[Rfam]
RNA: Chlorobi-RRM RNA
Organism: Chlorobium phaeovibrioides
RNA sequence: AAUUCAGCCAAUGGUUGGUUGAGAAGUGUGCGGGUAAUUGGUGCUAUGGUUAUCUGCAAGACUAUCUUUUUAU
Dot-bracket structure: ...((((((((...))))))))....(..((((((((((........)))))))))).)..............
Numbered sequence: 001a002a003u004u005c006a007g008c009c010a011a012u013g014g015u016u017g018g019u020u021g022a023g024a025a026g027u028g029u030g031c032g033g034g035u036a037a038u039u040g041g042u043g044c045u046a047u048g049g050u051u052a053u054c055u056g057c058a059a060g061a062c063u064a065u066c067u068u069u070u071u072a073u
Stems, first nucleotide, its partner, number of pairs: 004022008027059001030057010